[Rfam]
RNA: DUF805 RNA
RNA sequence: AUAUGGUGGAAUCCAGCGACCACUUAAAAAACGGGGCGAUACCGAAAAGCCAGACGAGUAGGAAAACA
Number, nucleotide and partner (000 for none) at each position: 001a000002u000003a000004u000005g000006g023007u022008g021009g020010a000011a000012u000013c000014c000015a000016g000017c000018g000019a000020c009021c008022a007023c006024u000025u000026a000027a000028a000029a000030a000031a000032c000033g000034g000035g051036g050037c049038g000039a000040u000041a000042c062043c061044g000045a000046a000047a000048a000049g037050c036051c035052a000053g000054a000055c000056g000057a000058g000059u000060a000061g043062g042063a000064a000065a000066a000067c000068a000